[Rfam]
RNA sequence: GUGCAUCCAGCAUGAAUUGAACCUACAUUUGCCAUUAUGAGUUGGGCGCUUUACCAUUCAGCCAUGGAUGC
Numbered sequence: 001g002u003g004c005a006u007c008c009a010g011c012a013u014g015a016a017u018u019g020a021a022c023c024u025a026c027a028u029u030u031g032c033c034a035u036u037a038u039g040a041g042u043u044g045g046g047c048g049c050u051u052u053a054c055c056a057u058u059c060a061g062c063c064a065u066g067g068a069u070g071c
Base pairs, nucleotide, nucleotide: 003071004070005069006068007067008066010026012024014022037065038064039063041062042061043060044059045058046057048055